[Rfam]
RNA sequence: AUUGAUAAUGCCAAACCUGCCGUGAGACAGGGACGGAAAGCCACGGGUCUGAACAGACAGCCGGGUUGCCCAAG
Numbered sequence: 001a002u003u004g005a006u007a008a009u010g011c012c013a014a015a016c017c018u019g020c021c022g023u024g025a026g027a028c029a030g031g032g033a034c035g036g037a038a039a040g041c042c043a044c045g046g047g048u049c050u051g052a053a054c055a056g057a058c059a060g061c062c063g064g065g066u067u068g069c070c071c072a073a074g
Stems, first nucleotide, its partner, number of pairs: 004070001011036002016031004021026001034060001039067004044063003047058003

Description
The record is a 74-nucleotide RNA from Desulfococcus multivorans, which matches "c-di-GMP-I-GGC riboswitch aptamer" in Rfam. Rfam links the family to the GO term cyclic-di-GMP binding. The literature on the family includes a 2009 paper in Nat Struct Mol Biol by Kulshina et al., "Recognition of the bacterial second messenger cyclic diguanylate by its cognate riboswitch". NCBI's taxonomy places the organism under Bacteria, Thermodesulfobacteriota, Desulfobacteria, Desulfobacterales, Desulfococcus multivorans. It scores 69 bits against the family's covariance model.